[Rfam]
RNA sequence: GCCGAAGUGGUGGAAUGGCAGACACACUGGUUUCAGGUACCAGCGAUCGCAAGGUCAUGCGGGUUCAACUCCCGCCUUCGGCA
Numbered sequence: 001g002c003c004g005a006a007g008u009g010g011u012g013g014a015a016u017g018g019c020a021g022a023c024a025c026a027c028u029g030g031u032u033u034c035a036g037g038u039a040c041c042a043g044c045g046a047u048c049g050c051a052a053g054g055u056c057a058u059g060c061g062g063g064u065u066c067a068a069c070u071c072c073c074g075c076c077u078u079c080g081g082c083a
Stems, first nucleotide, its partner, number of pairs: 001082007010025003027043005059075005

Annotation:
tRNA: an 83-nucleotide sequence from Nitrospira lenta. A search with the family's covariance model found it, with a score of 54 bits. Transfer RNA (tRNA) molecules are approximately 80 nucleotides in length. Rfam classes the family as a transfer RNA.